[Rfam]
RNA sequence: CCGCAGAGUAGAAGCAGGCAGUGGCACACGAAGCCACGGGUCAUUGCUCUGAUU
Numbered sequence: 001c002c003g004c005a006g007a008g009u010a011g012a013a014g015c016a017g018g019c020a021g022u023g024g025c026a027c028a029c030g031a032a033g034c035c036a037c038g039g040g041u042c043a044u045u046g047c048u049c050u051g052a053u054u
Stems, first nucleotide, its partner, number of pairs: 005050006015039001018041002021037005

A member of the RNA family "Xanthine riboswitch aptamer (NMT1 RNA)" from Caenimonas sedimenti, 54 nucleotides long. Its family is annotated with purine nucleobase binding in the Gene Ontology. The source organism's lineage runs through Bacteria, Pseudomonadati, Burkholderiales, Comamonadaceae and Caenimonas.